[Rfam]
RNA: Transposase-2 RNA
RNA sequence: GAAACGCGAGCCAAGCAGCCAUGACAAUGGCAUAAGACUUGGAGCGGACACCCGCAAGAGUGUCCUGCA
Numbered sequence: 001g002a003a004a005c006g007c008g009a010g011c012c013a014a015g016c017a018g019c020c021a022u023g024a025c026a027a028u029g030g031c032a033u034a035a036g037a038c039u040u041g042g043a044g045c046g047g048a049c050a051c052c053c054g055c056a057a058g059a060g061u062g063u064c065c066u067g068c069a
Stems, first nucleotide, its partner, number of pairs: 011042005018031005046065006053058001